[Rfam]
RNA: glmS glucosamine-6-phosphate activated ribozyme aptamer
Organism: Leptotrichia sp. oral taxon 215
RNA sequence: AAAAAUUAAAAAGCGCCUGAAUCUUUAGGUUUAAAUAUAAUUUUAUAUUUCCCUAAACUUUCAUAUAUAUUUAAAUCUUAAAGAUGACGAGGAAAAAGGGUUAUCGAAUUUUCGGCGGAUGCCCUUUAGGUGAUCACAACCUGAACAGUAUACAAAAUCGUAAGUAAUUGCGGGAACAAAAGUACUGUAGUGAUUAUUC
Numbered sequence: 001a002a003a004a005a006u007u008a009a010a011a012a013g014c015g016c017c018u019g020a021a022u023c024u025u026u027a028g029g030u031u032u033a034a035a036u037a038u039a040a041u042u043u044u045a046u047a048u049u050u051c052c053c054u055a056a057a058c059u060u061u062c063a064u065a066u067a068u069a070u071u072u073a074a075a076u077c078u079u080a081a082a083g084a085u086g087a088c089g090a091g092g093a094a095a096a097a098g099g100g101u102u103a104u105c106g107a108a109u110u111u112u113c114g115g116c117g118g119a120u121g122c123c124c125u126u127u128a129g130g131u132g133a134u135c136a137c138a139a140c141c142u143g144a145a146c147a148g149u150a151u152a153c154a155a156a157a158u159c160g161u162a163a164g165u166a167a168u169u170g171c172g173g174g175a176a177c178a179a180a181a182g183u184a185c186u187g188u189a190g191u192g193a194u195u196a197u198u199c
Stems, first nucleotide, its partner, number of pairs: 020085001022084008095127005104115004128142004146187005158173006